[Rfam]
RNA sequence: ACAUGACGACAGGGGCGCCGUGGCCCAUUGCCACGGCUGAGACGCACCCUCGGAACCUGACCCGGAUAGUGCCGGCGUAGGGAGUCGUGCAGCGGCACUC
Numbered sequence: 001a002c003a004u005g006a007c008g009a010c011a012g013g014g015g016c017g018c019c020g021u022g023g024c025c026c027a028u029u030g031c032c033a034c035g036g037c038u039g040a041g042a043c044g045c046a047c048c049c050u051c052g053g054a055a056c057c058u059g060a061c062c063c064g065g066a067u068a069g070u071g072c073c074g075g076c077g078u079a080g081g082g083a084g085u086c087g088u089g090c091a092g093c094g095g096c097a098c099u100c
Stems, first nucleotide, its partner, number of pairs: 006088005011050004016044001017037008056081004062075004